This 100-nucleotide sequence from Parvibaculum sedimenti belongs to the Rfam family "Glycine riboswitch aptamer". Rfam's curators write: This family represents the bacterial glycine riboswitch.
RNA sequence: CUCUGGAAAGCAGGCCGUCCAAACUCGGAUGGGCCUCACCGAAGGGCGUAAGCGGCGGGUUCUUCCCGUUCCGCGAAAUCUCUCAGGUUCCGCGACAGAG
Number, nucleotide and partner (000 for none) at each position: 001c100002u099003c098004u097005g096006g000007a000008a000009a000010g000011c000012a036013g035014g034015c033016c000017g000018u000019c000020c000021a000022a000023a000024c000025u000026c000027g000028g000029a000030u000031g000032g000033g015034c014035c013036u012037c000038a088039c087040c086041g084042a083043a000044g000045g082046g081047c000048g080049u000050a000051a000052g074053c073054g072055g071056c000057g000058g000059g000060u000061u000062c000063u000064u000065c000066c000067c000068g000069u000070u000071c055072c054073g053074c052075g000076a000077a000078a000079u000080c048081u046082c045083u042084c041085a000086g040087g039088u038089u000090c000091c000092g000093c000094g000095a000096c005097a004098g003099a002100g001